[Rfam]
The record is a 143-nucleotide RNA from Cytobacillus solani, which matches "Ribosomal protein L10 leader" in Rfam.
RNA sequence: AAUAAAAUAACAUUUUUACCGUAGACAGCAGGCGCCUUUAAGCUUAAUUUCCUGCCGAGGUAUUACGAUACAGUUAAUUGAUUUAUUAACUAUUGUAUACUUCCUCCAUGUCUGCAAAGGUGUGGAGGUUUUUUAUGGACGGU
Numbered sequence: 001a002a003u004a005a006a007a008u009a010a011c012a013u014u015u016u017u018a019c020c021g022u023a024g025a026c027a028g029c030a031g032g033c034g035c036c037u038u039u040a041a042g043c044u045u046a047a048u049u050u051c052c053u054g055c056c057g058a059g060g061u062a063u064u065a066c067g068a069u070a071c072a073g074u075u076a077a078u079u080g081a082u083u084u085a086u087u088a089a090c091u092a093u094u095g096u097a098u099a100c101u102u103c104c105u106c107c108a109u110g111u112c113u114g115c116a117a118a119g120g121u122g123u124g125g126a127g128g129u130u131u132u133u134u135a136u137g138g139a140c141g142g143u
Stems, first nucleotide, its partner, number of pairs: 028055005034043002103128010

Notes
NCBI's taxonomy places the organism under Bacteria, Bacillati, Bacillota, Caryophanales, Cytobacillus. For this family Rfam cites "Ribosomal protein L10(L12)4 autoregulates expression of the Bacillus subtilis rplJL operon by a transcription attenuation mechanism" (Yakhnin et al., Nucleic Acids Res, 2015). The base pairs follow the family's consensus structure, which was predicted with CMfinder.